Rfam assigns this 114-nucleotide sequence from Cucumis melo to the family "Small nucleolar RNA Z278". The family's RNA type in Rfam is C/D-box small nucleolar RNA. From the family's description: snoZ278 is a C/D box small nucleolar RNA. Its methylation guide targets have not been reported.
Nucleotides: 114
Stems, first nucleotide, its partner, number of pairs: 001114003048060005
Number, partner (000 for none) and nucleotide at each position: 001114a002113c003112c004000c005000u006000u007000g008000a009000u010000g011000a012000u013000u014000u015000u016000g017000u018000c019000c020000a021000a022000c023000u024000u025000a026000c027000u028000g029000a030000g031000a032000u033000g034000u035000u036000g037000u038000a039000a040000a041000g042000c043000c044000a045000a046000g047000a048060c049059c050058c051057u052056g053000c054000u055000u056052c057051a058050g059049g060048g061000a062000g063000a064000a065000c066000c067000u068000a069000c070000u071000u072000g073000g074000u075000g076000g077000a078000a079000u080000a081000a082000c083000a084000u085000u086000u087000u088000u089000a090000u091000g092000a093000g094000u095000u096000a097000a098000g099000u100000g101000g102000a103000u104000u105000u106000g107000a108000c109000u110000g111000a112003g113002g114001u
Pairs were carried over by alignment from the consensus structure, which was predicted with PFOLD. A reference for the family is Chen et al. (2003), "The high diversity of snoRNAs in plants: identification and comparative study of 120 snoRNA genes from Oryza sativa", Nucleic Acids Res.